[Rfam]
RNA sequence: CUUGGGGGGGGAGGGGCUCAGCCCAGAUUGCGAGAGGGUGCAGGCCAGGCCGAGGGACCCCACCAGUGCAUG
Numbered sequence: 001c002u003u004g005g006g007g008g009g010g011g012a013g014g015g016g017c018u019c020a021g022c023c024c025a026g027a028u029u030g031c032g033a034g035a036g037g038g039u040g041c042a043g044g045c046c047a048g049g050c051c052g053a054g055g056g057a058c059c060c061c062a063c064c065a066g067u068g069c070a071u072g
Stems, first nucleotide, its partner, number of pairs: 003070002006067001009064002013061004017054003021050003026045001028043005
Rfam assigns this 72-nucleotide RNA from Myotis myotis to the family "mir-9193 microRNA precursor family". Gene Ontology terms of the family: RISC complex and miRNA-mediated post-transcriptional gene silencing. Pairs were carried over by alignment from the consensus structure, which was predicted with RNAalifold. The organism belongs to Myotis, within Eukaryota.